The family of this 116-nucleotide RNA sequence is "SAM-I/IV (S-adenosyl methionine) riboswitch aptamer". Rfam 15.1 lists 567 matches to the family in 508 species. It is one of the family's seed sequences. The literature on the family includes a 2014 paper in PNAS by Trausch et al., "Structural basis for diversity in the SAM clan of riboswitches".

RNA sequence: GUCAAUCAUCAGGAGAGAUUACAAUAAAGUAAUCCACCAACCGACCCAAAAGGGCACGGUGGUUUGAUCCUUAAACGGUAGAUGUGCCUCAGAAGAGGAAUCUUAAAGCCGCCUGA
Dot-bracket structure: ......((((....(.(((((........))))))(((..(((.((......))..))).))).................))))..((((....))))..................